[Rfam]
Record summary:
A member of the RNA family "TPP riboswitch aptamer (THI element)", 114 nucleotides long. The base pairs follow the family's consensus structure, which is taken from published work. A search with the family's covariance model found it, with a score of 58 bits.

RNA sequence: CGCGACUCUGGCGGGAGCUUGGGUAAACCAGGCUGAGAGGGCGGCAAAGUUCGUCGCCGACCGUCUGUACCUGACCCGGGUAAUGCCGGCGGAGGAACAGCAGGUAGCAUGAAU
Numbered sequence: 001c002g003c004g005a006c007u008c009u010g011g012c013g014g015g016a017g018c019u020u021g022g023g024u025a026a027a028c029c030a031g032g033c034u035g036a037g038a039g040g041g042c043g044g045c046a047a048a049g050u051u052c053g054u055c056g057c058c059g060a061c062c063g064u065c066u067g068u069a070c071c072u073g074a075c076c077c078g079g080g081u082a083a084u085g086c087c088g089g090c091g092g093a094g095g096a097a098c099a100g101c102a103g104g105u106a107g108c109a110u111g112a113a114u
Stems, first nucleotide, its partner, number of pairs: 008100003011064004017033005040058005070095003076089004